[Rfam]
Nucleotides: 113
Base pairs, nucleotide, nucleotide: 011103014099015098017097018096019095020094024090025089027087028086029085030084031083032082033081034080
Number, partner (000 for none) and nucleotide at each position: 001000u002000u003000u004000a005000c006000a007000g008000a009000g010000u011103c012000a013000a014099u015098u016000a017097g018096g019095c020094a021000u022000g023000c024090u025089g026000g027087c028086c029085g030084c031083c032082u033081c034080c035000a036000a037000a038000u039000a040000u041000g042000u043000a044000a045000c046000u047000c048000a049000a050000u051000u052000u053000g054000g055000u056000u057000a058000c059000u060000u061000a062000g063000c064000a065000a066000g067000a068000a069000c070000a071000u072000u073000g074000a075000a076000c077000c078000a079000a080034g081033g082032a083031g084030g085029u086028g087027g088000a089025c090024a091000g092000a093000a094020u095019g096018c097017c098015a099014a100000a101000u102000u103011g104000g105000c106000u107000c108000u109000g110000c111000a112000a113000c
The record is a 113-nucleotide RNA from Castanea mollissima, which matches "MIR394 microRNA precursor family" in Rfam.
Rfam links the family to the GO terms RISC complex and miRNA-mediated post-transcriptional gene silencing.
Rfam 15.1 lists 724 matches to the family in 216 species.
On this family, see Jones-Rhoades and Bartel, Mol Cell 2004: "Computational identification of plant microRNAs and their targets, including a stress-induced miRNA".
It scores 65 bits against the family's covariance model.